RNA sequence: CUUGAUGGAGCCGAGCCACAGGGGCUCCCCGGCCUCGGCGCGCUCCUGACCGUAGGUGGCGAGCAGCGCCUGCGCCUC
Numbered sequence: 001c002u003u004g005a006u007g008g009a010g011c012c013g014a015g016c017c018a019c020a021g022g023g024g025c026u027c028c029c030c031g032g033c034c035u036c037g038g039c040g041c042g043c044u045c046c047u048g049a050c051c052g053u054a055g056g057u058g059g060c061g062a063g064c065a066g067c068g069c070c071u072g073c074g075c076c077u078c
Stems, first nucleotide, its partner, number of pairs: 014026004034074001036072001041068002046063002050059003
The family of this 78-nucleotide RNA sequence from Streptomyces aurantiacus is "ASpks TB sRNA". NCBI's taxonomy places the organism under Bacteria, Actinomycetes, Kitasatosporales, Streptomycetaceae, Streptomyces aurantiacus. The match comes from Rfam's covariance-model search (76 bits).